[Rfam]
RNA sequence: UAAUGGCAAGAAUGAUGAUUCAAUUAGAUGUGUGAAGAGAACAAUCUCUCAUGAACUUAAUUUAUUUGAGGCAUAAUAAUUUCUGACUUGCCAAAA
Numbered sequence: 001u002a003a004u005g006g007c008a009a010g011a012a013u014g015a016u017g018a019u020u021c022a023a024u025u026a027g028a029u030g031u032g033u034g035a036a037g038a039g040a041a042c043a044a045u046c047u048c049u050c051a052u053g054a055a056c057u058u059a060a061u062u063u064a065u066u067u068g069a070g071g072c073a074u075a076a077u078a079a080u081u082u083c084u085g086a087c088u089u090g091c092c093a094a095a096a
Stems, first nucleotide, its partner, number of pairs: 001096001004093007
The record is a 96-nucleotide RNA from Chenopodium quinoa, which matches "Small nucleolar RNA Z266" in Rfam. Lineage of the source: Eukaryota > Streptophyta > Magnoliopsida > Chenopodioideae > Chenopodium. Pairs were carried over by alignment from the consensus structure, which was predicted with PFOLD. Its family is annotated with nucleolus and RNA processing in the Gene Ontology. On this family, see Chen et al., Nucleic Acids Res 2003: "The high diversity of snoRNAs in plants: identification and comparative study of 120 snoRNA genes from Oryza sativa".